[Rfam]
Rfam assigns this 112-nucleotide RNA sequence from Paenibacillus sp. JCM 10914 to the family "TPP riboswitch aptamer (THI element)". Rfam links the family to the GO term thiamine pyrophosphate binding. Rfam describes the family as follows. Vitamin B(1) in its active form thiamin pyrophosphate (TPP) is an essential coenzyme that is synthesised by coupling of pyrimidine and thiazole moieties in bacteria. The previously detected thiamin-regulatory element, thi box was extended, resulting in a new, highly conserved RNA secondary structure, the THI element, which is widely distributed in eubacteria and also occurs in some archaea. Analysis of operon structures identified a large number of new candidate thiamin-regulated genes, mostly transporters, in various prokaryotic organisms. The THI element is a riboswitch that directly binds to TPP to regulate gene expression through a variety of mechanisms in archaea, bacteria and eukaryotes. through a variety of mechanisms in archaea, bacteria and eukaryotes.
RNA sequence: AAUAUGGAAUACGGGGGCUUGAGAGAAUCAGGCUGAGAUUGCAGCUAUAUCCGCUGUUGACCGUUAAUCUGAACUGGGUAAUGCCAGCGUAGAGAAUAUCCGACCCUGUUUC
Numbered sequence: 001a002a003u004a005u006g007g008a009a010u011a012c013g014g015g016g017g018c019u020u021g022a023g024a025g026a027a028u029c030a031g032g033c034u035g036a037g038a039u040u041g042c043a044g045c046u047a048u049a050u051c052c053g054c055u056g057u058u059g060a061c062c063g064u065u066a067a068u069c070u071g072a073a074c075u076g077g078g079u080a081a082u083g084c085c086a087g088c089g090u091a092g093a094g095a096a097u098a099u100c101c102g103a104c105c106c107u108g109u110u111u112c
Stems, first nucleotide, its partner, number of pairs: 006100002009097002011064004016058001017033005041057004068093004074087004